[Rfam]
RNA sequence: AGGCAGCCCCCUUUUCUUGAAUGAAAAAAUGGAGAGGGAGGUGUUAAUCUGCUCGGAAAUCAAAAUAAAAGCUUUUGCUCUUCAGAUUUGCUGAGAUUUUAACCAAUCUUUGAAGCUGGUCUAGUAAGCUCAAGUACAUU
Dot-bracket structure: .((((.((((((((((..............)))))))).))))))..........................(((..(((....(((((.(((..(((........))).....))).)))))....)))..)))......
Numbered sequence: 001a002g003g004c005a006g007c008c009c010c011c012u013u014u015u016c017u018u019g020a021a022u023g024a025a026a027a028a029a030u031g032g033a034g035a036g037g038g039a040g041g042u043g044u045u046a047a048u049c050u051g052c053u054c055g056g057a058a059a060u061c062a063a064a065a066u067a068a069a070a071g072c073u074u075u076u077g078c079u080c081u082u083c084a085g086a087u088u089u090g091c092u093g094a095g096a097u098u099u100u101a102a103c104c105a106a107u108c109u110u111u112g113a114a115g116c117u118g119g120u121c122u123a124g125u126a127a128g129c130u131c132a133a134g135u136a137c138a139u140u
Stems, first nucleotide, its partner, number of pairs: 002045004007041002009038008072134003077129003084122005090116003095108003